[Rfam]
A member of the RNA family "c-di-GMP-I riboswitch aptamer" from Pseudodesulfovibrio piezophilus, 78 nucleotides long. The organism belongs to Pseudodesulfovibrio piezophilus, within Bacteria. The base pairs follow the family's consensus structure, which is taken from published work. The match comes from Rfam's covariance-model search (64 bits).
RNA sequence: AUCGAUAAAAACCAAAUCCAUCGUGAGGUGGAGACGGAAAGCCACGGGUCUCUUGCGGGAGACAGCCGGGUUGCCGAG
Numbered sequence: 001a002u003c004g005a006u007a008a009a010a011a012c013c014a015a016a017u018c019c020a021u022c023g024u025g026a027g028g029u030g031g032a033g034a035c036g037g038a039a040a041g042c043c044a045c046g047g048g049u050c051u052c053u054u055g056c057g058g059g060a061g062a063c064a065g066c067c068g069g070g071u072u073g074c075c076g077a078g
Base pairs, nucleotide, nucleotide: 012037013036017032018031019030020029021028022027040072041071042070043069045068046067047066048063049062050061051060052059053058